[Rfam]
This 103-nucleotide RNA from Lachnospiraceae bacterium XPB1003 belongs to the Rfam family "SAM riboswitch aptamer (S box leader)". It scores 72 bits against the family's covariance model. Gene Ontology term of the family: regulation of gene expression.
RNA sequence: CUCUUAUUCAGAGUGGCGGAGGUACAUAGGACCUGUGAAACCACGGCAACCCCCGAAAGGGAAGGUGCCUACCUGAGCGAGAAUUGUGUUCGAACAAUAAGAG
Numbered sequence: 001c002u003c004u005u006a007u008u009c010a011g012a013g014u015g016g017c018g019g020a021g022g023u024a025c026a027u028a029g030g031a032c033c034u035g036u037g038a039a040a041c042c043a044c045g046g047c048a049a050c051c052c053c054c055g056a057a058a059g060g061g062a063a064g065g066u067g068c069c070u071a072c073c074u075g076a077g078c079g080a081g082a083a084u085u086g087u088g089u090u091c092g093a094a095c096a097a098u099a100a101g102a103g
Stems, first nucleotide, its partner, number of pairs: 001103008013044004021033003027077001030074001045069004050065002052061003078092004083087001